Record summary: Small nucleolar RNA SNORA1: a 133-nucleotide RNA sequence from Chinchilla lanigera. It is annotated as an H/ACA-box small nucleolar RNA. Rfam describes the family as follows. ACA1 is a member of the H/ACA class of snoRNA that guide the sites of modification of uridines to pseudouridines. A search with the family's covariance model found it, with a score of 126 bits. Its family is annotated with RNA processing and nucleolus in the Gene Ontology. The organism belongs to Chinchilla, within Eukaryota.
[Rfam]
Nucleotides: 133
Base pairs, nucleotide, nucleotide: 002060003059004058006056007055008054021043023041024040025039026038027037073126074125075124076123077122087112088111089110090109091108092107
Number, partner (000 for none) and nucleotide at each position: 001000a002060g003059c004058c005000u006056c007055a008054u009000u010000c011000u012000a013000g014000a015000u016000u017000a018000g019000a020000g021043u022000a023041g024040g025039c026038a027037c028000u029000g030000u031000u032000g033000a034000u035000u036000g037027g038026u039025g040024u041023c042000c043021a044000a045000g046000a047000u048000u049000g050000g051000u052000u053000a054008a055007u056006g057000u058004g059003g060002u061000u062000a063000a064000a065000a066000u067000u068000g069000a070000g071000a072000c073126a074125c075124a076123g077122g078000u079000c080000a081000u082000g083000c084000a085000u086000c087112c088111a089110u090109c091108a092107c093000a094000g095000u096000a097000a098000a099000c100000a101000u102000u103000u104000a105000u106000a107092g108091u109090g110089g111088u112087g113000a114000c115000a116000a117000u118000g119000a120000g121000a122077c123076c124075u125074g126073u127000a128000a129000c130000a131000u132000u133000u